[Rfam]
RNA sequence: CCCGGCAGGCCUCUUAACAAUGCUCAAGAUGUCGGGU
Numbered sequence: 001c002c003c004g005g006c007a008g009g010c011c012u013c014u015u016a017a018c019a020a021u022g023c024u025c026a027a028g029a030u031g032u033c034g035g036g037u
Stems, first nucleotide, its partner, number of pairs: 001036006008024003
A member of the RNA family "abiF RNA" from Fulvivirga sedimenti, 37 nucleotides long. The family's RNA type in Rfam is small RNA. Rfam 15.1 lists 282 matches to the family in 274 species. From the family's description: Actinobacteria, Bacteroidetes, Clostridia, Proteobacteria, one Clostridia phage. The source organism's lineage runs through Bacteria, Bacteroidota, Cytophagales, Fulvivirgaceae and Fulvivirga. Pairs were carried over by alignment from the consensus structure, which is taken from published work.